About this RNA:
Shown here is a 45-nucleotide RNA sequence from Persicirhabdus sediminis, a member of the family "Acido-Lenti-1 RNA". The organism belongs to Persicirhabdus, within Bacteria.

[Rfam]
RNA sequence: CCCUGGGCGGUGCCCAGGGCUUCGAUAGGUCGCCGCUCCGCGGCU
Numbered sequence: 001c002c003c004u005g006g007g008c009g010g011u012g013c014c015c016a017g018g019g020c021u022u023c024g025a026u027a028g029g030u031c032g033c034c035g036c037u038c039c040g041c042g043g044c045u
Stems, first nucleotide, its partner, number of pairs: 001019008032044005